[Rfam]
RNA sequence: AUGCUUACCGCAGUACCAUUUAAAGAGCUAUGACAACUUUCUCACUUAUAGCUCUUAAAAUGGCGCUUCAGUCCGCAA
Numbered sequence: 001a002u003g004c005u006u007a008c009c010g011c012a013g014u015a016c017c018a019u020u021u022a023a024a025g026a027g028c029u030a031u032g033a034c035a036a037c038u039u040u041c042u043c044a045c046u047u048a049u050a051g052c053u054c055u056u057a058a059a060a061u062g063g064c065g066c067u068u069c070a071g072u073c074c075g076c077a078a
Stems, first nucleotide, its partner, number of pairs: 002077003007072002012067002016063006024055008
RNA: mir-458 microRNA precursor family